[Rfam]
SAM riboswitch aptamer (S box leader): a 107-nucleotide RNA sequence from Metabacillus indicus. Lineage of the source: Bacteria > Bacillota > Bacilli > Bacillaceae > Metabacillus. Rfam's curators write: The SAM riboswitch is found upstream of a number of genes which code for proteins involved in methionine or cysteine biosynthesis in Gram-positive bacteria. The SAM riboswitch acts at the level of transcription termination control. The predicted structure consists of a complex stem-loop region followed by a single stem loop terminator region.
RNA sequence: UUCUUAUCAAGAGAGGUGGAGGGAUAUGGCCCUUUGAAGCCUCGGCAACGGAUCUGACAGCAGAAACCGUGCCAAUUCCAGCAAACAGUUUGUUUGAGAGAUGAGAG
Numbered sequence: 001u002u003c004u005u006a007u008c009a010a011g012a013g014a015g016g017u018g019g020a021g022g023g024a025u026a027u028g029g030c031c032c033u034u035u036g037a038a039g040c041c042u043c044g045g046c047a048a049c050g051g052a053u054c055u056g057a058c059a060g061c062a063g064a065a066a067c068c069g070u071g072c073c074a075a076u077u078c079c080a081g082c083a084a085a086c087a088g089u090u091u092g093u094u095u096g097a098g099a100g101a102u103g104a105g106a107g
Stems, first nucleotide, its partner, number of pairs: 001107008013043005021032003027080003044073004049069002053064003077099001082096006